[Rfam]
RNA sequence: GCCGGUCCUCGGUAGUGGCCACCGGAACCCUGGGUUCCGCUGGCUUCGAUCGAUGGCCGGC
Numbered sequence: 001g002c003c004g005g006u007c008c009u010c011g012g013u014a015g016u017g018g019c020c021a022c023c024g025g026a027a028c029c030c031u032g033g034g035u036u037c038c039g040c041u042g043g044c045u046u047c048g049a050u051c052g053a054u055g056g057c058c059g060g061c
Stems, first nucleotide, its partner, number of pairs: 001061007009053005017045005023039007
The family of this 61-nucleotide sequence from Nakamurella endophytica is "Actino-pnp RNA". By type it is a cis-regulatory element. A search with the family's covariance model found it, with a score of 69 bits.